Nucleotides: 146
Stems, first nucleotide, its partner, number of pairs: 003144001005142006017029003031126002033115002035062004057113002065091002095111005117129003
Number, partner (000 for none) and nucleotide at each position: 001000c002000u003144g004000a005142a006141u007140u008139c009138u010137c011000g012000g013000g014000g015000c016000g017029g018028g019027g020000u021000g022000c023000a024000a025000u026000u027019c028018c029017c030000c031126a032125c033115c034114g035062g036061c037060g038059g039000u040000g041000a042000g043000c044000g045000u046000u047000u048000a049000u050000a051000c052000g053000u054000c055000a056000a057113g058112c059038c060037c061036g062035c063000g064000a065091g066090c067000g068000c069000c070000c071000g072000g073000c074000g075000a076000c077000a078000g079000a080000g081000c082000c083000g084000g085000g086000g087000u088000c089000a090066g091065c092000a093000g094000a095111u096110c097109c098108g099107g100000u101000g102000u103000a104000a105000u106000u107099c108098c109097g110096g111095a112058g113057c114034c115033g116000a117129c118128g119127g120000u121000g122000a123000a124000a125032g126031u127119c128118c129117g130000g131000a132000u133000g134000a135000a136000a137010g138009a139008g140007a141006g142005u143000g144003c145000u146000u